[Rfam]
RNA: tRNA
Organism: Elysia chlorotica
RNA sequence: GCCCCCAUAGCUGAGUGGCUAGAGCACUGGUCUUGUAAACCAGGGGUCGUGAGUUCGAUCCUCACUGGAGGCU
Numbered sequence: 001g002c003c004c005c006c007a008u009a010g011c012u013g014a015g016u017g018g019c020u021a022g023a024g025c026a027c028u029g030g031u032c033u034u035g036u037a038a039a040c041c042a043g044g045g046g047u048c049g050u051g052a053g054u055u056c057g058a059u060c061c062u063c064a065c066u067g068g069a070g071g072c073u
Stems, first nucleotide, its partner, number of pairs: 001072003005068003010025003027043005049065005